[Rfam]
RNA sequence: UAACCUCUGACGAAAUACGUGAAUGUUA
Numbered sequence: 001u002a003a004c005c006u007c008u009g010a011c012g013a014a015a016u017a018c019g020u021g022a023a024u025g026u027u028a
Base pairs, nucleotide, nucleotide: 001028002027003026004025008023010020011019012018
RNA: L19-Flavobacteria ribosomal protein leader